RNA sequence: GGAAGUAGCAAAUAUUCAAAUGAGAUCUUUGAAGACUGAAGUGGAGAAAGGUUCCAUAGGAAUCGUGUUGAACUAUGGGUUAGUCGGUCCUAAGAGAUAGGUGAAAUCCGUUGAAAAAGUUCUUUCUAUUUUUAGAACUAUGGAUCGAAAGGGAAUCAGGUUAAUAUUCCUGAACCAAUGAAAUGGAAUUGAAUGGUAACAGAGAAUAAUAUUAUGACAUCGGUUACUCUCCUGGGAAGAGUUUUCUUUUCUUGUUAACAAUAAUAAAAGCUUGGAAUGGAAUGAAUCCGCGAAAAGGUUUUGUUAUUGGUAAAGGAAUUCAAUAUUUUGAAUUCUCCGGUGCAGAGUAAUGGGUCCUUGAAAAGUAAUAUUAUCUGUACAUUUCAUUGUCCGUACUCAUAACCGCAUCAGGUCUCCAAGGUGAAUAGCCUCUAGUUAA
Numbered sequence: 001g002g003a004a005g006u007a008g009c010a011a012a013u014a015u016u017c018a019a020a021u022g023a024g025a026u027c028u029u030u031g032a033a034g035a036c037u038g039a040a041g042u043g044g045a046g047a048a049a050g051g052u053u054c055c056a057u058a059g060g061a062a063u064c065g066u067g068u069u070g071a072a073c074u075a076u077g078g079g080u081u082a083g084u085c086g087g088u089c090c091u092a093a094g095a096g097a098u099a100g101g102u103g104a105a106a107u108c109c110g111u112u113g114a115a116a117a118a119g120u121u122c123u124u125u126c127u128a129u130u131u132u133u134a135g136a137a138c139u140a141u142g143g144a145u146c147g148a149a150a151g152g153g154a155a156u157c158a159g160g161u162u163a164a165u166a167u168u169c170c171u172g173a174a175c176c177a178a179u180g181a182a183a184u185g186g187a188a189u190u191g192a193a194u195g196g197u198a199a200c201a202g203a204g205a206a207u208a209a210u211a212u213u214a215u216g217a218c219a220u221c222g223g224u225u226a227c228u229c230u231c232c233u234g235g236g237a238a239g240a241g242u243u244u245u246c247u248u249u250u251c252u253u254g255u256u257a258a259c260a261a262u263a264a265u266a267a268a269a270g271c272u273u274g275g276a277a278u279g280g281a282a283u284g285a286a287u288c289c290g291c292g293a294a295a296a297g298g299u300u301u302u303g304u305u306a307u308u309g310g311u312a313a314a315g316g317a318a319u320u321c322a323a324u325a326u327u328u329u330g331a332a333u334u335c336u337c338c339g340g341u342g343c344a345g346a347g348u349a350a351u352g353g354g355u356c357c358u359u360g361a362a363a364a365g366u367a368a369u370a371u372u373a374u375c376u377g378u379a380c381a382u383u384u385c386a387u388u389g390u391c392c393g394u395a396c397u398c399a400u401a402a403c404c405g406c407a408u409c410a411g412g413u414c415u416c417c418a419a420g421g422u423g424a425a426u427a428g429c430c431u432c433u434a435g436u437u438a439a
Stems, first nucleotide, its partner, number of pairs: 015033006034437004043417004049397002054078006063071002085393003089152002094146002096112003100109002119138005156173005176389004185385001186383002194201002210370006219355003224350007232340003235255001237253004259309005269299001271297003278290004316335007403412002419431004
The record is a 439-nucleotide part of an RNA from Blastocystis hominis, which matches "Eukaryotic large subunit ribosomal RNA" in Rfam.